[Rfam]
Description:
isrA Hfq binding RNA: a 129-nucleotide RNA from Xenorhabdus szentirmaii. The base pairs follow the family's consensus structure, which was predicted with WAR. A search with the family's covariance model found it, with a score of 58 bits. By type it is a small RNA.

RNA sequence: AUACUCACUUUUACAGCUUGCCCAGUGGCAAAUCCGGCUUCUUCCAGCCAGUUACCCUUCAAAUGCAAACUGGGGGACUGGCUGUAAUGGCGGGUCAUGCCGGUAUGUCGGUCAGCAUGACGGGUACUG
Dot-bracket structure: ..........................(.((..(((.............((((((.........))...)))).)))..)).).......................(((...........))).......